Record summary:
The record is a 118-nucleotide RNA sequence from Ancylomarina longa, which matches "Group II catalytic intron D1-D4-2" in Rfam. Rfam describes the family as follows. Group II introns are found in rRNA, tRNA and mRNA of organelles in fungi, plants and protists, and also in mRNA in bacteria.

[Rfam]
RNA sequence: GUCGGAUGAGCCACCGCAAGCGUUGUACAGGCGAGGCUUGCAAACCACCUAAAGGUGCUGUGGUAAAGAGUCAUGGUGCUGAGCGUUUAGGAAACGGCUAGUCAAGAAUUAGUCAGGU
Numbered sequence: 001g002u003c004g005g006a007u008g009a010g011c012c013a014c015c016g017c018a019a020g021c022g023u024u025g026u027a028c029a030g031g032c033g034a035g036g037c038u039u040g041c042a043a044a045c046c047a048c049c050u051a052a053a054g055g056u057g058c059u060g061u062g063g064u065a066a067a068g069a070g071u072c073a074u075g076g077u078g079c080u081g082a083g084c085g086u087u088u089a090g091g092a093a094a095c096g097g098c099u100a101g102u103c104a105a106g107a108a109u110u111a112g113u114c115a116g117g118u
Stems, first nucleotide, its partner, number of pairs: 001015001004012002016041006023034004046117001048091006054080002057077003061073004096114006
Taxonomically the source falls in Ancylomarina (Bacteria, Bacteroidia, Marinilabiliales, Marinifilaceae).